[Rfam]
RNA: Group II catalytic intron D1-D4-2
RNA sequence: GGUGGUAGGCCCACCGAAGUCGGCAGUCGGAUGCAGGCUUCAAACCGGCCCAAGCUGCGCGCAUAAAGAGUGCGGGUAGUGAGCGUUGGGUGAAAAGGCCGUACAACAAUACGGUCAGGU
Numbered sequence: 001g002g003u004g005g006u007a008g009g010c011c012c013a014c015c016g017a018a019g020u021c022g023g024c025a026g027u028c029g030g031a032u033g034c035a036g037g038c039u040u041c042a043a044a045c046c047g048g049c050c051c052a053a054g055c056u057g058c059g060c061g062c063a064u065a066a067a068g069a070g071u072g073c074g075g076g077u078a079g080u081g082a083g084c085g086u087u088g089g090g091u092g093a094a095a096a097g098g099c100c101g102u103a104c105a106a107c108a109a110u111a112c113g114g115u116c117a118g119g120u
Base pairs, nucleotide, nucleotide: 001015002014003013004012005011016041017040018039019038020037021036023034024033025032046119048091049090050089051088052087053086054080055079057077058076060074061073062072063071064070097116098115099114100113101112102111